The family of this 64-nucleotide RNA sequence from Salmo salar is "mir-17 microRNA precursor family".
NCBI's taxonomy places the organism under Eukaryota, Chordata, Neopterygii, Salmoniformes, Salmo.
Gene Ontology terms of the family: miRNA-mediated post-transcriptional gene silencing and RISC complex.
RNA sequence: AAAAGUGCUUACAGUGCAGGUAGUGGCGAUGCCCAGCCUACCUGCAGUAUGAGCACUUCUUUCA
Numbered sequence: 001a002a003a004a005g006u007g008c009u010u011a012c013a014g015u016g017c018a019g020g021u022a023g024u025g026g027c028g029a030u031g032c033c034c035a036g037c038c039u040a041c042c043u044g045c046a047g048u049a050u051g052a053g054c055a056c057u058u059c060u061u062u063c064a
Base pairs, nucleotide, nucleotide: 001061003058004057005056006055007054008053009052010051011050013048015046016045017044019043020041021040022039023038
The sequence is in the family's curated seed alignment. From the family's description: This family represents the microRNA (miRNA) precursor mir-17, family, which includes mir-20, mir-91, and mir-103. miRNAs are transcribed as ~70nt precursors (modelled here) and subsequently processed by the Dicer enzyme to give a ~22nt product. In this case the mature sequence comes from the 3' arm of the precursor. The extents of the hairpin precursors are not generally known and are estimated based on hairpin prediction. On this family, see Liu et al., J Mol Biol 2025: "Structural Features Within Precursor microRNA-20a Regulate Dicer-TRBP Processing".